[Rfam]
RNA sequence: UAGAAUAAUGUAGGUAAGGGAAGUCGGCAAAAUAGAUCCGUAACUUCGGGAUAAGGAUUGGCUCUAAGGGUUGGGCAGGCUGGGCUGCAUCUUGAAGUUGUUGGACCCGACUGGGACUACCUGAGGCUUCGGCUGAGGGCGGACCUGGUUGGGACUGGCUAUGGACGGGUGUAGCAGGGGUUGGAGAUUCGUUCUCUGGCUUCUUUUUUCGGCCUGCAAUUAACAACUAACUUAGAACUGGUACGGUCACGGGGAAUCCGACUGUUUAAUUAAAACAUAGCAUCGAGAUGGCCUCAUACGGUGUUGACUCGAUGUGAUUUCUGCCCAGUGCUCUGAAUGUCAAAGUGAAGAAAUUCAACCAAGCGCGGGUAAACGGCGGGAGUAACUAUGACUCUCUUAAGGUAGCCAAAUGCCUCGUCAUCUAAUUAGUGACGCGCAUGAAUGGAUUAACGAGAUUCCCACUGUCCCUAUCUACUAUCUAGCGAAACCGCUGCCAAGGGAACGGACUUGGCAAA
Numbered sequence: 001u002a003g004a005a006u007a008a009u010g011u012a013g014g015u016a017a018g019g020g021a022a023g024u025c026g027g028c029a030a031a032a033u034a035g036a037u038c039c040g041u042a043a044c045u046u047c048g049g050g051a052u053a054a055g056g057a058u059u060g061g062c063u064c065u066a067a068g069g070g071u072u073g074g075g076c077a078g079g080c081u082g083g084g085c086u087g088c089a090u091c092u093u094g095a096a097g098u099u100g101u102u103g104g105a106c107c108c109g110a111c112u113g114g115g116a117c118u119a120c121c122u123g124a125g126g127c128u129u130c131g132g133c134u135g136a137g138g139g140c141g142g143a144c145c146u147g148g149u150u151g152g153g154a155c156u157g158g159c160u161a162u163g164g165a166c167g168g169g170u171g172u173a174g175c176a177g178g179g180g181u182u183g184g185a186g187a188u189u190c191g192u193u194c195u196c197u198g199g200c201u202u203c204u205u206u207u208u209u210c211g212g213c214c215u216g217c218a219a220u221u222a223a224c225a226a227c228u229a230a231c232u233u234a235g236a237a238c239u240g241g242u243a244c245g246g247u248c249a250c251g252g253g254g255a256a257u258c259c260g261a262c263u264g265u266u267u268a269a270u271u272a273a274a275a276c277a278u279a280g281c282a283u284c285g286a287g288a289u290g291g292c293c294u295c296a297u298a299c300g301g302u303g304u305u306g307a308c309u310c311g312a313u314g315u316g317a318u319u320u321c322u323g324c325c326c327a328g329u330g331c332u333c334u335g336a337a338u339g340u341c342a343a344a345g346u347g348a349a350g351a352a353a354u355u356c357a358a359c360c361a362a363g364c365g366c367g368g369g370u371a372a373a374c375g376g377c378g379g380g381a382g383u384a385a386c387u388a389u390g391a392c393u394c395u396c397u398u399a400a401g402g403u404a405g406c407c408a409a410a411u412g413c414c415u416c417g418u419c420a421u422c423u424a425a426u427u428a429g430u431g432a433c434g435c436g437c438a439u440g441a442a443u444g445g446a447u448u449a450a451c452g453a454g455a456u457u458c459c460c461a462c463u464g465u466c467c468c469u470a471u472c473u474a475c476u477a478u479c480u481a482g483c484g485a486a487a488c489c490g491c492u493g494c495c496a497a498g499g500g501a502a503c504g505g506a507c508u509u510g511g512c513a514a515a
Base pairs, nucleotide, nucleotide: 001481002480003479004478010475011474012473013472014471015470016469018467019466020465035059036058037057038056039055044049060239061238063236064235065234066233067232068231069228070227071226072225073224075217076216077215078214079213080212081211082210083209084175085174086173088171089170090169091168097162098161100159102157103156104155106153107152108151109150110149111148112147113146114145115144117142118141120139121138122137125134126133127132240244252460253459254458255457256456257455258454259452260451263277264276265275280315281314282313283312284311285310286309287308291302292301293300319446320445321444323377324376325375328374329373330370331369332368333367335366338365339364340363346357347356348355349354378396379395380394381393382392383391397401417433418432419431420430421429494511495510496509497508498507

A member of the RNA family "Eukaryotic large subunit ribosomal RNA" from Capsaspora owczarzaki, 515 nucleotides of a longer RNA. Lineage of the source: Eukaryota > Opisthokonta > Capsasporidae > Capsaspora > Capsaspora owczarzaki. The sequence is in the family's curated seed alignment.